[Rfam]
RNA sequence: GGGCAAGAUAUGUGAAGUUAGCUAACUUUUAAAAGUUACCAAACUUCACUUUCAUCUUAUUCGCACAUGUCUGUGCUCAACGAAUCUUGCUCUGCGAGGCC
Dot-bracket structure: (((((((((..((((((.(.(..(((((....)))))..).).)))))).....((......(((((....))))).....))))))))))).........
Numbered sequence: 001g002g003g004c005a006a007g008a009u010a011u012g013u014g015a016a017g018u019u020a021g022c023u024a025a026c027u028u029u030u031a032a033a034a035g036u037u038a039c040c041a042a043a044c045u046u047c048a049c050u051u052u053c054a055u056c057u058u059a060u061u062c063g064c065a066c067a068u069g070u071c072u073g074u075g076c077u078c079a080a081c082g083a084a085u086c087u088u089g090c091u092c093u094g095c096g097a098g099g100c101c
Stems, first nucleotide, its partner, number of pairs: 001092009012049006019042001021040001024037005055083002063076005
The record is a 101-nucleotide RNA from Nitrosomonas aestuarii, which matches "traJ-II RNA" in Rfam. The family's RNA type in Rfam is cis-regulatory element. The family's consensus secondary structure is taken from published work.